About this RNA
The family of this 35-nucleotide RNA from Jaculus jaculus is "Iron response element I". Gene Ontology term of the family: response to iron ion. A search with the family's covariance model found it, with a score of 48 bits. Rfam 15.1 lists 6,829 matches to the family in 599 species. NCBI's taxonomy places the organism under Eukaryota, Bilateria, Chordata, Eutheria, Jaculus. Rfam classes the family as a cis-regulatory element.

RNA sequence: CUGUGUCUUGCUUCAACAGUGUUUGGAUGGACUAG
Numbered sequence: 001c002u003g004u005g006u007c008u009u010g011c012u013u014c015a016a017c018a019g020u021g022u023u024u025g026g027a028u029g030g031a032c033u034a035g
Stems, first nucleotide, its partner, number of pairs: 001035003005032004010028001012027005017021001